[Rfam]
RNA sequence: GGGUACCCCUCUGAGCGUACCCAUCUGCGUGUGAAUAGUCCGUUUCCAUUGGCCUGGACGGGUGGUUCGUGAAUC
Numbered sequence: 001g002g003g004u005a006c007c008c009c010u011c012u013g014a015g016c017g018u019a020c021c022c023a024u025c026u027g028c029g030u031g032u033g034a035a036u037a038g039u040c041c042g043u044u045u046c047c048a049u050u051g052g053c054c055u056g057g058a059c060g061g062g063u064g065g066u067u068c069g070u071g072a073a074u075c
Base pairs, nucleotide, nucleotide: 001022002021003020004019005018006017032069033068034067035066036065038063039062040061041060042059045058046057047056048055
RNA: L13-Bacteroidia ribosomal protein leader